[Rfam]
Small nucleolar RNA SNORA46: a 139-nucleotide sequence from Pelodiscus sinensis. Taxonomically the source falls in Pelodiscus (Eukaryota, Bilateria, Gnathostomata, Archelosauria). Rfam classes the family as an H/ACA-box small nucleolar RNA. Rfam's curators write: ACA46 is a member of the H/ACA class of snoRNA that guide the sites of modification of uridines to pseudouridines.
RNA sequence: GGCACUAUUUUUAAACCUAUGGAUGGAAUUUCUCUCCACUGUAGGUUACGCUGUAGUGCAAAAUAAAUCCUUGGCACUGUUGUGAGCGCAACUGACCUUUUACCAUUUGGUUGAUGCUACAGUAAGCUAAGGAAUAGAA
Number, nucleotide and partner (000 for none) at each position: 001g000002g059003c058004a057005c056006u055007a054008u053009u000010u000011u000012u000013a000014a047015a046016c045017c044018u000019a000020u000021g000022g040023a000024u038025g037026g036027a035028a000029u000030u000031u000032c000033u000034c000035u027036c026037c025038a024039c000040u022041g000042u000043a000044g017045g016046u015047u014048a000049c000050g000051c000052u000053g008054u007055a006056g005057u004058g003059c002060a000061a000062a000063a000064u000065a000066a000067a000068u134069c000070c132071u131072u130073g128074g127075c126076a000077c000078u000079g000080u000081u121082g120083u000084g000085a000086g117087c116088g115089c113090a112091a111092c110093u000094g108095a107096c000097c000098u000099u000100u000101u000102a000103c000104c000105a000106u000107u095108u094109g000110g092111u091112u090113g089114a000115u088116g087117c086118u000119a000120c082121a081122g000123u000124a000125a000126g075127c074128u073129a000130a072131g071132g070133a000134a068135u000136a000137g000138a000139a000